[Rfam]
RNA sequence: AUGGAAUUAGCGAUGAUUAUAAAAAUAAUUUUUCGUUUUGACUUGCUUAAUUUGGAUAUGACAAACCUCUUACUACAAUUAUAGAAUCUGAGCUCC
Numbered sequence: 001a002u003g004g005a006a007u008u009a010g011c012g013a014u015g016a017u018u019a020u021a022a023a024a025a026u027a028a029u030u031u032u033u034c035g036u037u038u039u040g041a042c043u044u045g046c047u048u049a050a051u052u053u054g055g056a057u058a059u060g061a062c063a064a065a066c067c068u069c070u071u072a073c074u075a076c077a078a079u080u081a082u083a084g085a086a087u088c089u090g091a092g093c094u095c096c
Base pairs, nucleotide, nucleotide: 003096004095009094010093